[Rfam]
RNA sequence: GCCCAUGUAGCUCAGUAGGAUAGAGCACGCGCCUUCUAAGCGUGAGGUCGGAAGUUCGAGCCUUCUCGUGGGCA
Numbered sequence: 001g002c003c004c005a006u007g008u009a010g011c012u013c014a015g016u017a018g019g020a021u022a023g024a025g026c027a028c029g030c031g032c033c034u035u036c037u038a039a040g041c042g043u044g045a046g047g048u049c050g051g052a053a054g055u056u057c058g059a060g061c062c063u064u065c066u067c068g069u070g071g072g073c074a
Stems, first nucleotide, its partner, number of pairs: 001073007010026004028044005050066005
Annotation:
The family of this 74-nucleotide sequence from Mycoplasma capricolum is "tRNA". The organism belongs to Mycoplasma, within Bacteria. Rfam links the family to the GO term triplet codon-amino acid adaptor activity. The family's consensus secondary structure is taken from published work.